[Rfam]
The record is a 227-nucleotide RNA sequence from Miscanthus lutarioriparius, which matches "MIR6217 microRNA precursor family" in Rfam.
RNA sequence: UGCUUGGGGAGCAAGUUCUUGCUCUCGGCUUUGAGUUACGAUAAUUAUUAUGUUAAUUUACGAGAUUAUAGUAACUCCUUACUAAGUGGUUUACUAUAACGUUAUGGUAAAUAUCCUCAUGUGUUAUAGUAACCCAACUAUCGUAAAUAUGUAUUGACAUUAUCGUAAAUUAGUAUAUAAAAUUAUCGUAAAUGAAGGUGGCUACAUAAUAACUUAUUUUGUAGCUG
Numbered sequence: 001u002g003c004u005u006g007g008g009g010a011g012c013a014a015g016u017u018c019u020u021g022c023u024c025u026c027g028g029c030u031u032u033g034a035g036u037u038a039c040g041a042u043a044a045u046u047a048u049u050a051u052g053u054u055a056a057u058u059u060a061c062g063a064g065a066u067u068a069u070a071g072u073a074a075c076u077c078c079u080u081a082c083u084a085a086g087u088g089g090u091u092u093a094c095u096a097u098a099a100c101g102u103u104a105u106g107g108u109a110a111a112u113a114u115c116c117u118c119a120u121g122u123g124u125u126a127u128a129g130u131a132a133c134c135c136a137a138c139u140a141u142c143g144u145a146a147a148u149a150u151g152u153a154u155u156g157a158c159a160u161u162a163u164c165g166u167a168a169a170u171u172a173g174u175a176u177a178u179a180a181a182a183u184u185a186u187c188g189u190a191a192a193u194g195a196a197g198g199u200g201g202c203u204a205c206a207u208a209a210u211a212a213c214u215u216a217u218u219u220u221g222u223a224g225c226u227g
Base pairs, nucleotide, nucleotide: 001227002226004224005223006222008220009219010218011217013215014214015213016212017211019209020208021207023204026201028199029198030197031196032195036191037190038189039188040187041186042185043184044183045182046181049177050176051175052174053173054172055171056170057169058168059167060166061165064164065163066162068160069159073154079146080145081144082143086141087140088139089138090137091136092131093130094129095128096127097126098125099124100123101122102121106116107115
Dot-bracket structure: ((.(((.((((.(((((.(((.(..(.(((((...(((((((((((..(((((((((((((..(((.((...(.....((((...(((((((((((((((((...((.......))....)))))))))))....)))))).)))).......)....)).))))))))))))))))...)))))))))))...))))).)..)..))).))))).)))).))).))

The family's consensus secondary structure was predicted with RNAalifold.
Gene Ontology terms of the family: RISC complex and miRNA-mediated post-transcriptional gene silencing.